[Rfam]
Guanidine-I riboswitch aptamer: a 96-nucleotide sequence from Clostridium estertheticum. About the family: This family represents a conserved RNA structure found upstream of the ykkC and yxkD genes in Bacillus subtilis and related genes in other bacteria. The base pairs follow the family's consensus structure. The match comes from Rfam's covariance-model search (86 bits).
RNA sequence: UAUUUAGUUUUCUAGGGUUCCGCAGUUUAUAACUGGCUGGUCCAAGAGAAAACGCACAGUUAUCUGUGUUCACGGAAGGACAAAAGCCUGGGAGAU
Number, nucleotide and partner (000 for none) at each position: 001u000002a000003u000004u000005u000006a000007g053008u052009u051010u050011u049012c048013u000014a000015g043016g042017g000018u000019u000020c040021c039022g037023c035024a034025g033026u032027u031028u000029a000030u000031a027032a026033c025034u024035g023036g000037c022038u000039g021040g020041u000042c016043c015044a000045a000046g000047a000048g012049a011050a010051a009052a008053c007054g069055c068056a067057c066058a065059g064060u000061u000062a000063u000064c059065u058066g057067u056068g055069u054070u000071c091072a000073c094074g000075g000076a000077a089078g088079g087080a000081c000082a000083a000084a000085a000086g000087c079088c078089u077090g000091g071092g000093a000094g073095a000096u000